mir-399 microRNA precursor family: a 121-nucleotide RNA from Artemisia annua. The match comes from Rfam's covariance-model search (74 bits). The base pairs follow the family's consensus structure, which was predicted with PFOLD. NCBI's taxonomy places the organism under Eukaryota, Streptophyta, Streptophytina, campanulids, Artemisia. For this family Rfam cites "Computational Identification of Plant MicroRNAs and Their Targets, Including a Stress-Induced miRNA" (Jones-Rhoades and Bartel, Mol Cell, 2004).
[Rfam]
RNA sequence: UGGUGCAUUACUGGACAAGUUCUCUUUUGGCAGUUCCCACAUAUUUUCAUCUUGUUUACUUGAAUCAUAAGAUGUUAUUAGUGGAAAAACUGCCAAAGGAGAUUUGCCCAGCAAUACAUCG
Numbered sequence: 001u002g003g004u005g006c007a008u009u010a011c012u013g014g015a016c017a018a019g020u021u022c023u024c025u026u027u028u029g030g031c032a033g034u035u036c037c038c039a040c041a042u043a044u045u046u047u048c049a050u051c052u053u054g055u056u057u058a059c060u061u062g063a064a065u066c067a068u069a070a071g072a073u074g075u076u077a078u079u080a081g082u083g084g085a086a087a088a089a090c091u092g093c094c095a096a097a098g099g100a101g102a103u104u105u106g107c108c109c110a111g112c113a114a115u116a117c118a119u120c121g
Stems, first nucleotide, its partner, number of pairs: 005117001007115003011111004016106004022101004028095008

About the family: mir-399 was identified in both Arabidopsis thaliana and Oryza sativa computationally and was later experimentally verified. mir-399 is thought to target mRNAs coding for a phosphatase transporter. The mature sequence is excised from the 3' arm of the hairpin.